epsC RNA: a 117-nucleotide RNA sequence from Bacillus sp. B1-b2. The family has 30 seed sequences and 450 matches in Rfam 15.1. NCBI's taxonomy places the organism under Bacteria, Bacillati, Bacillota, Caryophanales, Bacillus. It scores 105 bits against the family's covariance model. It is annotated as a cis-regulatory element.
RNA sequence: UGGUGAUGUCUCCUAACCAUUAUCAAUGGAGGCACUCGGUUAUACUGUGGGUAACAAUUGCCUGUUACCUUAGCGCUAGUCUGCAAAAGUAUAAUGUGAGGGGAGGUUCAAUGCCUC
Number, nucleotide and partner (000 for none) at each position: 001u019002g018003g017004u016005g000006a000007u034008g033009u032010c031011u030012c029013c028014u000015a000016a004017c003018c002019a001020u000021u000022a000023u000024c000025a000026a000027u000028g013029g012030a011031g010032g009033c008034a007035c100036u099037c098038g097039g095040u094041u093042a092043u091044a090045c089046u088047g000048u000049g070050g069051g068052u067053a066054a065055c064056a063057a000058u000059u000060g000061c000062c000063u056064g055065u054066u053067a052068c051069c050070u049071u000072a000073g084074c083075g081076c000077u000078a000079g000080u000081c075082u000083g074084c073085a000086a000087a000088a046089g045090u044091a043092u042093a041094a040095u039096g000097u038098g037099a036100g035101g000102g000103g117104a116105g115106g114107u113108u000109c000110a000111a000112u000113g107114c106115c105116u104117c103